The record is a 62-nucleotide sequence from Nannospalax galili, which matches "Gag/pol translational readthrough site" in Rfam. By type it is a cis-regulatory element. The organism belongs to Nannospalax, within Eukaryota. Its family is annotated with viral translational readthrough in the Gene Ontology. A search with the family's covariance model found it, with a score of 68 bits.
RNA sequence: UAGGGGGGUCGGGGUUUGGACCCCUUCCCUGAACCUAGGGUAACCCUCAAAGUGGAGGGGAC
Numbered sequence: 001u002a003g004g005g006g007g008g009u010c011g012g013g014g015u016u017u018g019g020a021c022c023c024c025u026u027c028c029c030u031g032a033a034c035c036u037a038g039g040g041u042a043a044c045c046c047u048c049a050a051a052g053u054g055g056a057g058g059g060g061a062c
Stems, first nucleotide, its partner, number of pairs: 008041003012036004016031001018029002022060006